[Rfam]
RNA: TPP riboswitch aptamer (THI element)
RNA sequence: ACGCGCGACACGGGGUGCCCGCGACGGACCGGGCUGAGAACACACCCGCCGAACUUGAUCCGGCCAACACCGGCGAAAGGAUGUUGCAAUGGGCGACG
Numbered sequence: 001a002c003g004c005g006c007g008a009c010a011c012g013g014g015g016u017g018c019c020c021g022c023g024a025c026g027g028a029c030c031g032g033g034c035u036g037a038g039a040a041c042a043c044a045c046c047c048g049c050c051g052a053a054c055u056u057g058a059u060c061c062g063g064c065c066a067a068c069a070c071c072g073g074c075g076a077a078a079g080g081a082u083g084u085u086g087c088a089a090u091g092g093g094c095g096a097c098g
Base pairs, nucleotide, nucleotide: 006086007085008084009083010082011048012047013046014045016042017034018033019032020031021030054079055078056077060073061072062071063070